[Rfam]
RNA sequence: UUUUUUUAAUAAAAGUCUUUAUGAUUACUUCACAUGUCAGACUUCAGAGGUUUUGGAAACAAGAUAUAUGAGAAGACAUUUCAUUAUUCUGAGCAGAUA
Numbered sequence: 001u002u003u004u005u006u007u008a009a010u011a012a013a014a015g016u017c018u019u020u021a022u023g024a025u026u027a028c029u030u031c032a033c034a035u036g037u038c039a040g041a042c043u044u045c046a047g048a049g050g051u052u053u054u055g056g057a058a059a060c061a062a063g064a065u066a067u068a069u070g071a072g073a074a075g076a077c078a079u080u081u082c083a084u085u086a087u088u089c090u091g092a093g094c095a096g097a098u099a
Base pairs, nucleotide, nucleotide: 001099003097004096005095007093050065051064052063053062054061

A member of the RNA family "Small nucleolar RNA R64/Z200 family" from Papaver somniferum, 99 nucleotides long. A search with the family's covariance model found it, with a score of 52 bits. Lineage of the source: Eukaryota > Viridiplantae > Embryophyta > Mesangiospermae > Papaver. A reference for the family is Marker et al. (2002), "Experimental RNomics: identification of 140 candidates for small non-messenger RNAs in the plant Arabidopsis thaliana", Curr Biol.